[Rfam]
RNA sequence: AACGAUACUUCUGCCGAAAGCAGCUCGCCGGAAGGCGGGAUAUGUUGUUUCAGGCUGAAAACUAUGUCUGUUACAACAUAU
Number, nucleotide and partner (000 for none) at each position: 001a000002a000003c000004g000005a000006u000007a000008c000009u000010u000011c023012u022013g021014c020015c000016g000017a000018a000019a000020g014021c013022a012023g011024c039025u038026c037027g036028c035029c034030g000031g000032a000033a000034g029035g028036c027037g026038g025039g024040a081041u080042a079043u078044g077045u076046u000047g074048u073049u000050u000051c070052a069053g068054g067055c066056u000057g000058a000059a000060a000061a000062c000063u000064a000065u000066g055067u054068c053069u052070g051071u000072u000073a048074c047075a000076a045077c044078a043079u042080a041081u040
RNA: dinG RNA